This 130-nucleotide sequence from Coregonus sp. 'balchen' belongs to the Rfam family "Small nucleolar RNA SNORA3/SNORA45 family".
For this family Rfam cites "A novel experimental approach for systematic identification of box H/ACA snoRNAs from eukaryotes" (Gu et al., Nucleic Acids Res, 2005).
Rfam 15.1 lists 2,080 matches to the family in 639 species.
Lineage of the source: Eukaryota > Teleostomi > Actinopteri > Osteoglossocephalai > Coregonus.
From the family's description: The members of this family belong to the H/ACA class of snoRNAs which are thought to guide the sites of modification of uridines to pseudouridines. This family includes mouse snoMBI-28 and human homologues ACA3 (SNORA3) and ACA3-2 (SNORA45). Both ACA3 and ACA3-2 share the same host gene. MBI-28, ACA3 and ACA3-2 are all predicted to guide the pseudouridylation of residues in 28S rRNA.
Clan: SNORA3 clan.
Pairs were carried over by alignment from the consensus structure, which was predicted with RNAalifold.
Its family is annotated with RNA processing and nucleolus in the Gene Ontology.
RNA sequence: CGUGAGGCUAGAGUCACGCCUUGACGACACCUCAUUGUCCUGGUGUACUAGAGUGCUCACAGUAAACGUAUUUGCCUAGUCAUUGACUAGUUCCCUUGUGGCCCAGCCAAUCACCAGCUCGGAUACAGAA
Numbered sequence: 001c002g003u004g005a006g007g008c009u010a011g012a013g014u015c016a017c018g019c020c021u022u023g024a025c026g027a028c029a030c031c032u033c034a035u036u037g038u039c040c041u042g043g044u045g046u047a048c049u050a051g052a053g054u055g056c057u058c059a060c061a062g063u064a065a066a067c068g069u070a071u072u073u074g075c076c077u078a079g080u081c082a083u084u085g086a087c088u089a090g091u092u093c094c095c096u097u098g099u100g101g102c103c104c105a106g107c108c109a110a111u112c113a114c115c116a117g118c119u120c121g122g123a124u125a126c127a128g129a130a
Stems, first nucleotide, its partner, number of pairs: 002060005007054003012049002016046005023039004071122002074119001076117002079114001082111004088105001090103001092101002